[Rfam]
RNA sequence: AUCGUUCAACCAUUAAGGUCGGAAGUAGGCAAUCGCUGAAGGAACGCACC
Numbered sequence: 001a002u003c004g005u006u007c008a009a010c011c012a013u014u015a016a017g018g019u020c021g022g023a024a025g026u027a028g029g030c031a032a033u034c035g036c037u038g039a040a041g042g043a044a045c046g047c048a049c050c
Stems, first nucleotide, its partner, number of pairs: 003046005009019003022047001028037003
RNA: Glutamine riboswitch aptamer (glnA leader)